Rfam assigns this 132-nucleotide RNA from Bombyx mori to the family "U4atac minor spliceosomal RNA". By type it is a spliceosomal small nuclear RNA. The family's consensus secondary structure is taken from published work. For this family Rfam cites "Evolutionary conservation of minor U12-type spliceosome between plants and humans" (Lorkovic et al., RNA, 2005).

[Rfam]
RNA sequence: AACUUCCUUGUCUUGGGGAGCAUAGUGCGCAGUGAUCGUAAAGUGAGAGCACUUCUGCUGACACCCACAAGUUAAACUUGUUACACCCGCGCCCGGCUGCCGUAAGGGAGUCCGAGCGCAAUUUUUGACGGG
Numbered sequence: 001a002a003c004u005u006c007c008u009u010g011u012c013u014u015g016g017g018g019a020g021c022a023u024a025g026u027g028c029g030c031a032g033u034g035a036u037c038g039u040a041a042a043g044u045g046a047g048a049g050c051a052c053u054u055c056u057g058c059u060g061a062c063a064c065c066c067a068c069a070a071g072u073u074a075a076a077c078u079u080g081u082u083a084c085a086c087c088c089g090c091g092c093c094c095g096g097c098u099g100c101c102g103u104a105a106g107g108g109a110g111u112c113c114g115a116g117c118g119c120a121a122u123u124u125u126u127g128a129c130g131g132g
Stems, first nucleotide, its partner, number of pairs: 005019005020058003024053005030047001037043001089119004094114001096111003100107002